[Rfam]
RNA sequence: AGAAUAUAAGAAUUCGUCUCUUAAUUUUUAACUAAAAGGCUAAGAACCGGUUCUUAGAUAAAAGUUUUAAGAGCCGAUUCUUAACUUUUUUAGUUAAAAGUUAAGAGACGGAUUCUUAUCC
Number, nucleotide and partner (000 for none) at each position: 001a000002g000003a000004a000005u000006a119007u118008a117009a116010g115011a114012a113013u112014u111015c110016g109017u108018c107019u106020c105021u104022u103023a102024a101025u100026u099027u098028u097029u096030a095031a094032c093033u092034a091035a090036a089037a088038g087039g086040c000041u083042a082043a081044g080045a079046a078047c000048c000049g000050g000051u000052u000053c000054u000055u000056a000057g000058a000059u000060a000061a000062a000063a000064g000065u000066u000067u000068u000069a000070a000071g000072a000073g000074c000075c000076g000077a000078u046079u045080c044081u043082u042083a041084a000085c000086u039087u038088u037089u036090u035091u034092a033093g032094u031095u030096a029097a028098a027099a026100g025101u024102u023103a022104a021105g020106a019107g018108a017109c016110g015111g014112a013113u012114u011115c010116u009117u008118a007119u006120c000121c000
RNA: MIR9563 microRNA precursor family
Organism: Brassica carinata